[Rfam]
The record is a 54-nucleotide sequence from Cryptocarya chinensis, which matches "Plastid-psbA-4 3UTR RNA" in Rfam.
About the family: Plastid psbA-4 is a non-coding RNA (ncRNA) present in plastids. It was identified in inverted repeat sequences in the 3 prime untranslate region (3UTR) of photosystem II quinone-binding protein (psbA).
A reference for the family is Richter et al. (2023), "Retrograde signaling in plants: A critical review focusing on the GUN pathway and beyond", Plant Commun.
By type it is a cis-regulatory element.
RNA sequence: AACAGAUCAAUACCAAACUUCUUGUUUUAUCAAGAAGUUUGGUAUUGAUCCUUC
Numbered sequence: 001a002a003c004a005g006a007u008c009a010a011u012a013c014c015a016a017a018c019u020u021c022u023u024g025u026u027u028u029a030u031c032a033a034g035a036a037g038u039u040u041g042g043u044a045u046u047g048a049u050c051c052u053u054c
Stems, first nucleotide, its partner, number of pairs: 002053001005050008016039002019036006
It is one of the family's seed sequences.
The source organism's lineage runs through Eukaryota, Streptophytina, Euphyllophyta, Magnoliopsida and Cryptocarya.